[Rfam]
RNA sequence: UUUACAUCUGAAGCCAACAGGAUGAGAACCUCCGGGGGCAGGGAGGUUCGACCCGAGCGCAGCGAGAGAACGUUGCGACAGCAACGACCCGCAGGGCGAGCCACGCAGUGGCGAGUCAUCCUCUAUCACCGACCA
Numbered sequence: 001u002u003u004a005c006a007u008c009u010g011a012a013g014c015c016a017a018c019a020g021g022a023u024g025a026g027a028a029c030c031u032c033c034g035g036g037g038g039c040a041g042g043g044a045g046g047u048u049c050g051a052c053c054c055g056a057g058c059g060c061a062g063c064g065a066g067a068g069a070a071c072g073u074u075g076c077g078a079c080a081g082c083a084a085c086g087a088c089c090c091g092c093a094g095g096g097c098g099a100g101c102c103a104c105g106c107a108g109u110g111g112c113g114a115g116u117c118a119u120c121c122u123c124u125a126u127c128a129c130c131g132a133c134c135a
Stems, first nucleotide, its partner, number of pairs: 017124001019122003023118001033098002047093001049091002054064002071086006

A member of the RNA family "RtT RNA" from Klebsiella sp. RIT-PI-d, 135 nucleotides long. By type it is a cis-regulatory element. It scores 94 bits against the family's covariance model. Rfam describes the family as follows. This family represents a bacterial cis-regulatory element known as RtT RNA. The exact function of RtT is unknown although it is thought that it may be involved in changing the cellular response in relation to amino acid starvation. NCBI's taxonomy places the organism under Bacteria, Pseudomonadati, Enterobacterales, Enterobacteriaceae, Klebsiella. The family has 57 seed sequences and 651 matches in Rfam 15.1.